This 136-nucleotide RNA sequence belongs to the Rfam family "RAGATH-19 RNA".
The base pairs follow the family's consensus structure, which is taken from published work.
Rfam classes the family as a small RNA.
[Rfam]
RNA sequence: UUAGUGGCGUUUGUUUUCCGUCAAAAGUAAUAAAAGCAUGCCAACCUAUCUUGAAAAUGGGAAACUAAAAAGAUGAUUGCCUUUUGAACGAGGCAAGCCUCACUCACAGACAGAAUGAGUAGUGGUAUUGGUAAUC
Numbered sequence: 001u002u003a004g005u006g007g008c009g010u011u012u013g014u015u016u017u018c019c020g021u022c023a024a025a026a027g028u029a030a031u032a033a034a035a036g037c038a039u040g041c042c043a044a045c046c047u048a049u050c051u052u053g054a055a056a057a058u059g060g061g062a063a064a065c066u067a068a069a070a071a072g073a074u075g076a077u078u079g080c081c082u083u084u085u086g087a088a089c090g091a092g093g094c095a096a097g098c099c100u101c102a103c104u105c106a107c108a109g110a111c112a113g114a115a116u117g118a119g120u121a122g123u124g125g126u127a128u129u130g131g132u133a134a135u136c
Base pairs, nucleotide, nucleotide: 006042007041008040009039012038013037014036015035016034017032045061046060047059048058049057077096078095079094080093081092082091100125101124102123103122106120107119